[Rfam]
The record is a 25-nucleotide sequence, which matches "L31-Firmicutes ribosomal protein leader" in Rfam.
The family's consensus secondary structure is taken from published work.
Its Rfam clan is "Ribosomal Protein L31 Leader clan".
A reference for the family is Eckert and Weinberg (2020), "Discovery of 20 novel ribosomal leader candidates in bacteria and archaea", BMC Microbiol.
RNA sequence: CUAUGGUCAGGUCAUGGCGAAAGAG
Numbered sequence: 001c002u003a004u005g006g007u008c009a010g011g012u013c014a015u016g017g018c019g020a021a022a023g024a025g
Base pairs, nucleotide, nucleotide: 001017002016003015004014005013006012007011